This 67-nucleotide RNA from Bacillus sp. HNG belongs to the Rfam family "Bacillaceae-1 RNA". The family's RNA type in Rfam is small RNA. NCBI's taxonomy places the organism under Bacteria, Bacillati, Bacillota, Caryophanales, Bacillus. The match comes from Rfam's covariance-model search (62 bits).
RNA sequence: GGAAUAAGGUUAAAGACUAAAAACGCCACUUCCUGUGGCAAUGUCUUUAUGACCCACCUCGUGUGGG
Numbered sequence: 001g002g003a004a005u006a007a008g009g010u011u012a013a014a015g016a017c018u019a020a021a022a023a024c025g026c027c028a029c030u031u032c033c034u035g036u037g038g039c040a041a042u043g044u045c046u047u048u049a050u051g052a053c054c055c056a057c058c059u060c061g062u063g064u065g066g067g
Stems, first nucleotide, its partner, number of pairs: 011049007025039005053067005